RNA sequence: UUUAGGAGAUGAUGAUUCUAUACAAACUUUAUCUAAGCAUCAGCAAUGCUGACUAUUUGCACGUCAGUCUGAUCCCAAA
Number, nucleotide and partner (000 for none) at each position: 001u079002u078003u077004a000005g075006g074007a073008g000009a000010u000011g000012a000013u000014g000015a000016u000017u000018c000019u000020a000021u000022a000023c000024a000025a000026a000027c000028u000029u000030u000031a000032u000033c000034u000035a000036a000037g000038c000039a000040u000041c000042a000043g000044c000045a000046a000047u000048g000049c000050u000051g000052a000053c000054u000055a000056u000057u000058u000059g000060c000061a000062c000063g000064u000065c000066a000067g000068u000069c000070u000071g000072a000073u007074c006075c005076c000077a003078a002079a001

Record summary:
Small nucleolar RNA Z122: a 79-nucleotide RNA from Morus notabilis. The base pairs follow the family's consensus structure, which was predicted with PFOLD. The family's RNA type in Rfam is C/D-box small nucleolar RNA. On this family, see Chen et al., Nucleic Acids Res 2003: "The high diversity of snoRNAs in plants: identification and comparative study of 120 snoRNA genes from Oryza sativa".